[Rfam]
RNA: Ribosomal protein L20 leader
Organism: Clostridium sp. HMP27
RNA sequence: UGUGUUAAGAAGAAACCAGCCGUUUCUCACCUUACAGCAUCGCUAGUAGGGUUAUAUGGAUAGCAAUUUUUAUUUUGUUGCAUAUAAAAGGACGGCAUUUGCCGUCCUUUUUUUAAUAC
Numbered sequence: 001u002g003u004g005u006u007a008a009g010a011a012g013a014a015a016c017c018a019g020c021c022g023u024u025u026c027u028c029a030c031c032u033u034a035c036a037g038c039a040u041c042g043c044u045a046g047u048a049g050g051g052u053u054a055u056a057u058g059g060a061u062a063g064c065a066a067u068u069u070u071u072a073u074u075u076u077g078u079u080g081c082a083u084a085u086a087a088a089a090g091g092a093c094g095g096c097a098u099u100u101g102c103c104g105u106c107c108u109u110u111u112u113u114u115a116a117u118a119c
Stems, first nucleotide, its partner, number of pairs: 011027006029052003034047002037043002091106006